[Rfam]
RNA sequence: ACCGCCUGACUCCCAGCCAUUUCAUUCUAACCCUAACCUUUGUGAGGUGUAGGUGCCAUGCUUUUGUUCCCCGUGUGUUGUUUUUCUCGCUGACUUUCAGCGCACGGAAAAGCCAUGCCCUAUUGCCGCUCAUUGUGGAUAUCCGUUUAACAAACAAAAAAAUGUCAGCUGCUGGCUCGCCUGCCCUUUCCAGGAGCCUGUGGUAGCUGCUCACCCGGCCGGGCACCCCGCUUAAGGCCGCGGAGGCGCCCAUCGCCACCGCAACGAGUUCGCCUCUGUCAGCCGUGGGGCCCCGGGGCUGAUGGUGUAUGGCUGGCUACAGGCAGAGAAACUGAGCCCACACCCAUGUGGUGCUUCCCUGAGCUGUGGGACUUGCACCCAGGGCUGGCUCAGACAUUU
Dot-bracket structure: ....((((......(((((........................................(((((.......(((((((((........[[[[[[[[[)))))))))..)))))..............................................]]].]]]]]]...))))).............))))..(((((((...........(((.((.((...(((((........((((.(((.......))).))))...(((.....)))........)))))...)).)).)....))...........)))))))..........((((.((..((......((((.((((........))))...))))...))..))))))........
Description:
A member of the RNA family "Vertebrate telomerase RNA" from Erinaceus europaeus, 399 nucleotides long. The family is grouped with related families in Rfam's "Telomerase clan". Taxonomically the source falls in Erinaceus (Eukaryota, Gnathostomata, Tetrapoda, Erinaceidae). The family's RNA type in Rfam is non-coding RNA gene. Telomerase is a ribonucleoprotein reverse transcriptase that synthesises telomeric DNA. Telomerase RNAs differ greatly in sequence and structure between vertebrates, ciliates and yeasts, but they share a 5' pseudoknot structure close to the template sequence. Vertebrate telomerase RNAs have a 3' H/ACA snoRNA-like domain.